The family of this 117-nucleotide RNA sequence from Poritiphilus flavus is "SAM riboswitch aptamer (S box leader)".
RNA sequence: UUGUUAUCAAGAAAGGUGGAGGGAAUAGACCCAAUGAAACCUUAGCAACCCUUUUCCCCGGAAAUCGGGACAAAGAAGGUGCUAAAUUCUACUCGAUCCCGCAUCGAUAGCUAUCGA
Numbered sequence: 001u002u003g004u005u006a007u008c009a010a011g012a013a014a015g016g017u018g019g020a021g022g023g024a025a026u027a028g029a030c031c032c033a034a035u036g037a038a039a040c041c042u043u044a045g046c047a048a049c050c051c052u053u054u055u056c057c058c059c060g061g062a063a064a065u066c067g068g069g070a071c072a073a074a075g076a077a078g079g080u081g082c083u084a085a086a087u088u089c090u091a092c093u094c095g096a097u098c099c100c101g102c103a104u105c106g107a108u109a110g111c112u113a114u115c116g117a
Base pairs, nucleotide, nucleotide: 013043014042015041016040017039021032022031023030026091027090028089029088044083045082046081047080049079050078051075052074053073054072093117094116095115096114097113